[Rfam]
RNA sequence: AUACAAAAUAUAAAAAAACAACUUAGUGUUUUUUCUCUGGGUUUUGUCGUUCACAAACUUUGGUCGGUGGGUGAGCGACUUCUUUUUAUUUGUUU
Numbered sequence: 001a002u003a004c005a006a007a008a009u010a011u012a013a014a015a016a017a018a019c020a021a022c023u024u025a026g027u028g029u030u031u032u033u034u035c036u037c038u039g040g041g042u043u044u045u046g047u048c049g050u051u052c053a054c055a056a057a058c059u060u061u062g063g064u065c066g067g068u069g070g071g072u073g074a075g076c077g078a079c080u081u082c083u084u085u086u087u088a089u090u091u092g093u094u095u
Base pairs, nucleotide, nucleotide: 005038007036014033015032016031017030018029019028020027046079047078048077049076050075051074052073053072054071

ctRNA: a 95-nucleotide RNA sequence. Rfam links the family to the GO terms mRNA binding and plasmid copy number maintenance.